[Rfam]
RNA sequence: GUUGUAAUGUGUGCAUAGUUUUCAUUGAUGUUUGGUUGCAGUAUCUGUGUUUUGCAUUCAGAUCUUGCUAUCCACGCAGUCAUCAUGCAGCCAAAGAGUAACUUGGGAUCAUAGUACUGGUCUAGUGUUGUCUCUUACAACACAUCUACCACUGGCCAGCCUCCAAAUUCCUGCACACAG
Numbered sequence: 001g002u003u004g005u006a007a008u009g010u011g012u013g014c015a016u017a018g019u020u021u022u023c024a025u026u027g028a029u030g031u032u033u034g035g036u037u038g039c040a041g042u043a044u045c046u047g048u049g050u051u052u053u054g055c056a057u058u059c060a061g062a063u064c065u066u067g068c069u070a071u072c073c074a075c076g077c078a079g080u081c082a083u084c085a086u087g088c089a090g091c092c093a094a095a096g097a098g099u100a101a102c103u104u105g106g107g108a109u110c111a112u113a114g115u116a117c118u119g120g121u122c123u124a125g126u127g128u129u130g131u132c133u134c135u136u137a138c139a140a141c142a143c144a145u146c147u148a149c150c151a152c153u154g155g156c157c158a159g160c161c162u163c164c165a166a167a168u169u170c171c172u173g174c175a176c177a178c179a180g
Stems, first nucleotide, its partner, number of pairs: 013088004029078003033074003036070001038068004043063005048056002104173005117159006124153004129144003133140001
A member of the RNA family "Small nucleolar RNA SNORA23" from Prolemur simus, 180 nucleotides long.
The family's RNA type in Rfam is H/ACA-box small nucleolar RNA.
The organism belongs to Prolemur, within Eukaryota.
It scores 165 bits against the family's covariance model.
Rfam 15.1 lists 1,092 matches to the family in 632 species.
From the family's description: The members of this family belong to the H/ACA class of snoRNAs which are thought to guide the sites of modification of uridines to pseudouridines. This family includes human snoRNA ACA23 (SNORA23) and mouse snoMBI-1. ACA23 is predicted to guide the pseudouridylation of residue U3737 and U4331 of 28S rRNA.